[Rfam]
RNA: ASpks TB sRNA
RNA sequence: CUUCAGCGCGCCCAGCCACAGCGGGUGCGCGCGCUCGACCGCGCCGUAGGUGUUCAGCAGCGCCUGCGCCUC
Number, nucleotide and partner (000 for none) at each position: 001c000002u000003u000004c000005a000006g000007c000008g000009c000010g000011c000012c000013c000014a026015g000016c024017c023018a000019c000020a000021g000022c000023g017024g016025g000026u014027g000028c000029g000030c000031g000032c068033g067034c066035u000036c062037g061038a000039c000040c000041g000042c000043g055044c000045c052046g051047u000048a000049g000050g000051u046052g045053u000054u000055c043056a000057g000058c000059a000060g000061c037062g036063c000064c000065u000066g034067c033068g032069c000070c000071u000072c000